The record is a 90-nucleotide RNA from Loxia curvirostra, which matches "mir-146 microRNA precursor family" in Rfam. The family has 33 seed sequences and 1,617 matches in Rfam 15.1. For this family Rfam cites "Kaposi's sarcoma-associated herpesvirus expresses an array of viral microRNAs in latently infected cells" (Cai et al., Proc Natl Acad Sci U S A, 2005). The family's consensus secondary structure was predicted with WAR.
RNA sequence: CUGGCUGCUUGGCUCUGAGAACUGAAUUCCAUAGGCGUUAAAGCCUCCAGAAUGCCCUAUGGAUUCAGUUCUGCAGCUGGGCAGCAACUG
Numbered sequence: 001c002u003g004g005c006u007g008c009u010u011g012g013c014u015c016u017g018a019g020a021a022c023u024g025a026a027u028u029c030c031a032u033a034g035g036c037g038u039u040a041a042a043g044c045c046u047c048c049a050g051a052a053u054g055c056c057c058u059a060u061g062g063a064u065u066c067a068g069u070u071c072u073g074c075a076g077c078u079g080g081g082c083a084g085c086a087a088c089u090g
Stems, first nucleotide, its partner, number of pairs: 008081002011078003018072008034056003